[Rfam]
RNA sequence: UGCUUUUUACAGCUCUUUUAGAAUUUUUCUAGCAAGCUUUCCGGUUUUUGCCGGAAAGCCCAA
Numbered sequence: 001u002g003c004u005u006u007u008u009a010c011a012g013c014u015c016u017u018u019u020a021g022a023a024u025u026u027u028u029c030u031a032g033c034a035a036g037c038u039u040u041c042c043g044g045u046u047u048u049u050g051c052c053g054g055a056a057a058g059c060c061c062a063a
Base pairs, nucleotide, nucleotide: 036059037058038057039056040055041054042053043052044051045050
The family of this 63-nucleotide sequence from Saimiri boliviensis is "U7 small nuclear RNA".
It scores 63 bits against the family's covariance model.
Pairs were carried over by alignment from the consensus structure, which was predicted with PFOLD.
Rfam's curators write: Animal histone pre-mRNAs are spliced by a different mechanism than nuclear pre-mRNAs and self-splicing introns. This processing involves the U7 snRNP, which contains only one RNA species: U7. The 5' end of U7 RNA is thought to base-pair to a conserved spacer element downstream of the cleavage site in histone pre-mRNA. This family contains a number of annotated U7 pseudogenes.